[Rfam]
RNA sequence: GGUAGGGCUUCCGGACCUGGUGGCCGGCCCGGUCUUCAAAACCGGUGAGGGGCGCCGAGAGGCGUCCCUGGCGAGUUCGAUUCUCGUGCCCUACC
Numbered sequence: 001g002g003u004a005g006g007g008c009u010u011c012c013g014g015a016c017c018u019g020g021u022g023g024c025c026g027g028c029c030c031g032g033u034c035u036u037c038a039a040a041a042c043c044g045g046u047g048a049g050g051g052g053c054g055c056c057g058a059g060a061g062g063c064g065u066c067c068c069u070g071g072c073g074a075g076u077u078c079g080a081u082u083c084u085c086g087u088g089c090c091c092u093a094c095c
Stems, first nucleotide, its partner, number of pairs: 001095008012027001014025001016023002029045005048069007072086004

Source information:
Rfam assigns this 95-nucleotide RNA sequence from Myxococcus xanthus to the family "Selenocysteine transfer RNA".